Shown here is a 184-nucleotide RNA sequence from Sorghum bicolor, a member of the family "MIR1435 microRNA precursor family".
Rfam 15.1 lists 1,765 matches to the family in 31 species.
It scores 100 bits against the family's covariance model.
The base pairs follow the family's consensus structure, which was predicted with RNAalifold.
Lineage of the source: Eukaryota > Streptophytina > Petrosaviidae > commelinids > Sorghum.
Rfam links the family to the GO terms miRNA-mediated post-transcriptional gene silencing and RISC complex.
RNA sequence: UAGAGUUGUCUUAAGUUAAACUAUUUAAAAUUUAACAAACUUUAUAGAGUAUCAACAUCUAUGAAACUAGAUAAGAAAAUAUUUCAUUAUGUAUCUAAUGAAACUUAUUUGGUGUCACAAAUAUAAGUGCUCUUUUCUAUAAUUUGAGUUAAACUUAGGAUAGUUUGACUUCGAACAACUCGAA
Numbered sequence: 001u002a003g004a005g006u007u008g009u010c011u012u013a014a015g016u017u018a019a020a021c022u023a024u025u026u027a028a029a030a031u032u033u034a035a036c037a038a039a040c041u042u043u044a045u046a047g048a049g050u051a052u053c054a055a056c057a058u059c060u061a062u063g064a065a066a067c068u069a070g071a072u073a074a075g076a077a078a079a080u081a082u083u084u085c086a087u088u089a090u091g092u093a094u095c096u097a098a099u100g101a102a103a104c105u106u107a108u109u110u111g112g113u114g115u116c117a118c119a120a121a122u123a124u125a126a127g128u129g130c131u132c133u134u135u136u137c138u139a140u141a142a143u144u145u146g147a148g149u150u151a152a153a154c155u156u157a158g159g160a161u162a163g164u165u166u167g168a169c170u171u172c173g174a175a176c177a178a179c180u181c182g183a184a
Stems, first nucleotide, its partner, number of pairs: 005179005011173001013171014031153005043139002046136004052127001055124001057122002060119001062117002067112006